[Rfam]
RNA sequence: ACAACUCAAAACAAUGAAAGCCCUACCUCUCUUUCAUCCUUACGGCUCCAAUGACCGUGCCAGUGUGAAUUGCAUGGCAAAAAUAUAA
Number, nucleotide and partner (000 for none) at each position: 001a000002c000003a000004a000005c000006u000007c000008a000009a000010a000011a000012c000013a000014a000015u000016g000017a000018a000019a000020g000021c000022c000023c000024u000025a000026c000027c000028u000029c000030u000031c000032u000033u000034u068035c067036a066037u000038c000039c063040u062041u059042a058043c057044g056045g055046c000047u053048c000049c000050a000051a000052u000053g047054a000055c045056c044057g043058u042059g041060c000061c000062a040063g039064u000065g000066u036067g035068a034069a000070u000071u000072g000073c000074a000075u000076g000077g000078c000079a000080a000081a000082a000083a000084u000085a000086u000087a000088a000

A member of the RNA family "BsrC" from Aneurinibacillus soli, 88 nucleotides long. Lineage of the source: Bacteria > Bacilli > Caryophanales > Paenibacillaceae > Aneurinibacillus. The base pairs follow the family's consensus structure, which was predicted with CMfinder. The family's RNA type in Rfam is small RNA. For this family Rfam cites "Novel small RNA-encoding genes in the intergenic regions of Bacillus subtilis" (Saito et al., Gene, 2008). From the family's description: The 301 nucleotide sequence from Kouji Nakamura has been trimmed to a highly conserved ~85 nucleotide long core to form this family. The match comes from Rfam's covariance-model search (84 bits).